[Rfam]
RNA sequence: CGGGUCAGUAUGAGGAAUAUAAAUUAAUGCUAAUGUAUGUCUGAGGGUGCAAUACCCAAUGACUCUUCAAAAAAGUCCUUUUCAUUCUGACUGGCCC
Dot-bracket structure: ...(((((.(((((...............................(((.....)))........................))))).....)))))..
Numbered sequence: 001c002g003g004g005u006c007a008g009u010a011u012g013a014g015g016a017a018u019a020u021a022a023a024u025u026a027a028u029g030c031u032a033a034u035g036u037a038u039g040u041c042u043g044a045g046g047g048u049g050c051a052a053u054a055c056c057c058a059a060u061g062a063c064u065c066u067u068c069a070a071a072a073a074a075g076u077c078c079u080u081u082u083c084a085u086u087c088u089g090a091c092u093g094g095c096c097c
Stems, first nucleotide, its partner, number of pairs: 004095005010085005046056003
The record is a 97-nucleotide RNA from Rhynchospora breviuscula, which matches "Small nucleolar RNA Z162" in Rfam. The organism belongs to Rhynchospora, within Eukaryota. The match comes from Rfam's covariance-model search (55 bits). It is annotated as a C/D-box small nucleolar RNA. Its family is annotated with RNA processing and nucleolus in the Gene Ontology. Pairs were carried over by alignment from the consensus structure, which was predicted with PFOLD.